[Rfam]
RNA sequence: CACAGCAGGGGACGUUGAGAUCCUCGGGCCGUUGCAAGACGGUCGCCGUGCUGGGUAGGUCACCAGCGGGCCCGAGGGGAGCGAGUGGCGAGACCGACCCCAGGACCG
Number, nucleotide and partner (000 for none) at each position: 001c108002a000003c000004a000005g000006c103007a000008g101009g100010g099011g098012a000013c083014g082015u081016u000017g000018a000019g000020a000021u000022c077023c076024u075025c074026g073027g072028g071029c070030c000031g000032u000033u000034g000035c000036a000037a000038g000039a000040c000041g095042g094043u091044c090045g089046c088047c087048g000049u000050g000051c000052u000053g000054g000055g000056u000057a000058g000059g000060u000061c000062a000063c000064c000065a000066g000067c000068g000069g000070g029071c028072c027073c026074g025075a024076g023077g022078g000079g000080a000081g015082c014083g013084a000085g000086u000087g047088g046089c045090g044091a043092g000093a000094c042095c041096g000097a000098c011099c010100c009101c008102a000103g006104g000105a000106c000107c000108g001
RNA: c-di-GMP-II-GAG riboswitch aptamer